[Rfam]
RNA sequence: UAAUAAGGAACAAUAAAAACUUAUUUAUGUUGUGAAUUGGCACAACGUUUCUACAAGACACCGUAAUGUCUAACAAUAAGUCUACUUUGUUCAGUU
Numbered sequence: 001u002a003a004u005a006a007g008g009a010a011c012a013a014u015a016a017a018a019a020c021u022u023a024u025u026u027a028u029g030u031u032g033u034g035a036a037u038u039g040g041c042a043c044a045a046c047g048u049u050u051c052u053a054c055a056a057g058a059c060a061c062c063g064u065a066a067u068g069u070c071u072a073a074c075a076a077u078a079a080g081u082c083u084a085c086u087u088u089g090u091u092c093a094g095u096u
Stems, first nucleotide, its partner, number of pairs: 019081007029046006056071005